[Rfam]
RNA sequence: UGUAAAUACCCUCCUUGGGUGUUUCCUCCCUAGACUUAGCCGCGCGAACAGCGCGGUUUUUUUUUGCCCGCG
Numbered sequence: 001u002g003u004a005a006a007u008a009c010c011c012u013c014c015u016u017g018g019g020u021g022u023u024u025c026c027u028c029c030c031u032a033g034a035c036u037u038a039g040c041c042g043c044g045c046g047a048a049c050a051g052c053g054c055g056g057u058u059u060u061u062u063u064u065u066g067c068c069c070g071c072g
Base pairs, nucleotide, nucleotide: 008020009019010018011017039057040056041055042054043053044052045051
Makes More Granules Regulator RNA (mmgR): a 72-nucleotide RNA from Rhizobium sp. NFR07.
SuhB later renamed mmgR (makes more granules regulator) was a putative non-coding RNA found multiple times in the Agrobacterium tumefaciens genome and related alpha-proteobacteria.
The organism belongs to Rhizobium, within Bacteria.
The pairing is the family consensus, mapped onto this sequence.